Rfam assigns this 279-nucleotide RNA from Alphavirus sindbis to the family "Togavirus 5' plus strand cis-regulatory element". Its family is annotated with RNA biosynthetic process and viral process in the Gene Ontology. On this family, see Frolov et al., RNA 2001: "Cis-acting RNA elements at the 5' end of Sindbis virus genome RNA regulate minus- and plus-strand RNA synthesis". This family represents a Togavirus virus 5' plus strand cis-regulatory element which is thought to be essential for both plus and minus strand RNA synthesis.Genus Alphaviruse belongs to the Togaviridae family. Alpha viruses contain secondary structural motifs in the 5' UTR that allow them to avoid detection by IFIT1. Rfam's curators put it in the seed alignment.
[Rfam]
RNA sequence: AUUGGCGGCGUAGUACACACUAUAAAGAAUCAAGCCGACCAAUUGCACUACCAUCAUCAUGGAGAAACCUGUAGUUAACGUUGACGUAGACCCUCAGAGUCCGUUCAUUACGCAACUGCAGAAGAGUUUCCCGCAGUUUGAGGUAGUAGCACAGCAGGCCACACCAAAUGACCAUGCAAAUGCCAGAGCUUUUUCGCAUCUGGCCAGCAAACUGAUCGAGCUGGAGGUCCCGACCACAGCGACGAUCUUGGACAUCGGCAGCGCACCUGCUCGUAGAAU
Numbered sequence: 001a002u003u004g005g006c007g008g009c010g011u012a013g014u015a016c017a018c019a020c021u022a023u024a025a026a027g028a029a030u031c032a033a034g035c036c037g038a039c040c041a042a043u044u045g046c047a048c049u050a051c052c053a054u055c056a057u058c059a060u061g062g063a064g065a066a067a068c069c070u071g072u073a074g075u076u077a078a079c080g081u082u083g084a085c086g087u088a089g090a091c092c093c094u095c096a097g098a099g100u101c102c103g104u105u106c107a108u109u110a111c112g113c114a115a116c117u118g119c120a121g122a123a124g125a126g127u128u129u130c131c132c133g134c135a136g137u138u139u140g141a142g143g144u145a146g147u148a149g150c151a152c153a154g155c156a157g158g159c160c161a162c163a164c165c166a167a168a169u170g171a172c173c174a175u176g177c178a179a180a181u182g183c184c185a186g187a188g189c190u191u192u193u194u195c196g197c198a199u200c201u202g203g204c205c206a207g208c209a210a211a212c213u214g215a216u217c218g219a220g221c222u223g224g225a226g227g228u229c230c231c232g233a234c235c236a237c238a239g240c241g242a243c244g245a246u247c248u249u250g251g252a253c254a255u256c257g258g259c260a261g262c263g264c265a266c267c268u269g270c271u272c273g274u275a276g277a278a279u
Stems, first nucleotide, its partner, number of pairs: 005274004048146005055140001060133003064130003098117003154177003157173002160170002182204006188197002214247005
Dot-bracket structure: ....((((.......................................(((((..(....(((.(((...............................(((..............)))..........))))))......).))))).......(((((.((.......)).)).)))....((((((((......)).)))))).........(((((........................))))).......................)))).....